[Rfam]
RNA sequence: UCUUUUUGUAGAUAUCAAUGAGAUAUACUAUGAACCAACAAGCAGUGAAUUAACGUUUAAGCGUACUUUGAGUACGUCUCUUGUUGGGAAACAAUCAAAUAAAACUUUAAAGACUAGGUAUAAACUUAGUCUUUUUUAUUUUAA
Numbered sequence: 001u002c003u004u005u006u007u008g009u010a011g012a013u014a015u016c017a018a019u020g021a022g023a024u025a026u027a028c029u030a031u032g033a034a035c036c037a038a039c040a041a042g043c044a045g046u047g048a049a050u051u052a053a054c055g056u057u058u059a060a061g062c063g064u065a066c067u068u069u070g071a072g073u074a075c076g077u078c079u080c081u082u083g084u085u086g087g088g089a090a091a092c093a094a095u096c097a098a099a100u101a102a103a104a105c106u107u108u109a110a111a112g113a114c115u116a117g118g119u120a121u122a123a124a125c126u127u128a129g130u131c132u133u134u135u136u137u138a139u140u141u142u143a144a
Stems, first nucleotide, its partner, number of pairs: 007032005012026005035087006044081002047078001048057003061077006109134010
RNA: DUF3800-I RNA